A member of the RNA family "glmS glucosamine-6-phosphate activated ribozyme aptamer" from Alkaliphilus serpentinus, 163 nucleotides long.
From the family's description: This entry contains a glucosamine-6-phosphate activated ribozyme that is found in the mRNA for GlmS. GlmS is an enzyme that uses fructose-6-phosphate and glutamine to generate glucosamine-6-phosphate. The ribozyme catalyses self cleavage of the glmS mRNA that is thought to regulate GlmS activity.
For this family Rfam cites "Control of gene expression by a natural metabolite-responsive ribozyme" (Winkler et al., Nature, 2004).
RNA sequence: UAAUAUUGUGAAGCGCCAGAGCUUAAGAGAAUUUAUCGGCUUAAGCUGACGAGGACAGGGUUUAUCGAAGAUUUCGGCGGAUGCCCUGCGAUGAGUCACCAUUUGUAAGGAAUCUACAAAACUACUGAGCAAUCGGUAGGACAAAGGGAUUUCAGUGACAGGU
Number, nucleotide and partner (000 for none) at each position: 001u000002a000003a000004u000005a000006u000007u000008g000009u000010g000011a000012a000013g000014c000015g000016c000017c000018a000019g000020a047021g046022c045023u044024u043025a042026a041027g040028a000029g000030a000031a000032u000033u000034u000035a000036u000037c000038g000039g000040c027041u026042u025043a024044a023045g022046c021047u020048g000049a000050c000051g000052a000053g000054g000055a000056c088057a087058g086059g085060g084061u000062u000063u000064a000065u077066c076067g075068a074069a000070g000071a000072u000073u000074u068075c067076g066077g065078c000079g000080g000081a000082u000083g000084c060085c059086c058087u057088g056089c105090g103091a102092u101093g100094a000095g000096u000097c000098a000099c000100c093101a092102u091103u090104u000105g089106u000107a000108a000109g153110g152111a151112a150113u149114c148115u147116a000117c000118a000119a000120a000121a000122c139123u138124a137125c136126u135127g134128a133129g000130c000131a000132a000133u128134c127135g126136g125137u124138a123139g122140g000141a000142c000143a000144a000145a000146g000147g115148g114149a113150u112151u111152u110153c109154a000155g000156u000157g000158a000159c000160a000161g000162g000163u000
Rfam links the family to the GO terms regulation of gene expression and catalytic activity. It scores 107 bits against the family's covariance model.